[Rfam]
Nucleotides: 106
Base pairs, nucleotide, nucleotide: 020096021095022094023093024092025091026090027089032087033086034085035084036083038081039080040079045078046077047076048075049074
Number, partner (000 for none) and nucleotide at each position: 001000c002000u003000a004000a005000a006000c007000c008000g009000a010000u011000c012000c013000g014000u015000c016000c017000a018000c019000a020096c021095a022094c023093g024092c025091g026090c027089c028000g029000u030000c031000a032087c033086a034085g035084a036083u037000c038081a039080c040079u041000g042000g043000g044000u045078g046077c047076c048075c049074g050000a051000g052000u053000g054000c055000u056000u057000g058000c059000a060000c061000g062000c063000u064000g065000u066000g067000c068000g069000c070000a071000a072000a073000u074049c075048g076047g077046g078045u079040g080039g081038u082000c083036g084035u085034c086033u087032g088000g089027g090026g091025u092024g093023c094022g095021u096020g097000g098000a099000g100000g101000c102000c103000u104000a105000a106000c
Description: Rfam assigns this 106-nucleotide RNA from Allochromatium warmingii to the family "t44 RNA". The family's RNA type in Rfam is small RNA. This family consists of a number of bacterial RNA genes of between 135 and 170 bases in length. A reference for the family is Tjaden et al. (2002), "Transcriptome analysis of Escherichia coli using high-density oligonucleotide probe arrays", Nucleic Acids Res.